Shown here is a 103-nucleotide RNA from Zingiber officinale, a member of the family "Small nucleolar RNA SNORD90". The family's consensus secondary structure was predicted with RNAalifold. Gene Ontology terms of the family: nucleolus and RNA processing. It scores 42 bits against the family's covariance model. The literature on the family includes a 2001 paper in EMBO J by Huttenhofer et al., "RNomics: an experimental approach that identifies 201 candidates for novel, small, non-messenger RNAs in mouse". About the family: snoRNA HBII-295 belongs to the family of C/D snoRNAs. It is the human orthologue of the mouse MBII-295 and has no identified RNA target. The organism belongs to Zingiber, within Eukaryota.

RNA sequence: AAUGUAAUUCUGCAACGAAUUCUGAAAUUCAUCGCAGAUUCUGCGACGAAUUCUGAAAUUCGUUGCAGAUUCUGCGAUGAAUUCUAAAAUUUGUUGCAGAUUC
Numbered sequence: 001a002a003u004g005u006a007a008u009u010c011u012g013c014a015a016c017g018a019a020u021u022c023u024g025a026a027a028u029u030c031a032u033c034g035c036a037g038a039u040u041c042u043g044c045g046a047c048g049a050a051u052u053c054u055g056a057a058a059u060u061c062g063u064u065g066c067a068g069a070u071u072c073u074g075c076g077a078u079g080a081a082u083u084c085u086a087a088a089a090u091u092u093g094u095u096g097c098a099g100a101u102u103c
Stems, first nucleotide, its partner, number of pairs: 013096009026083007033074002037070001040069002043066001045064006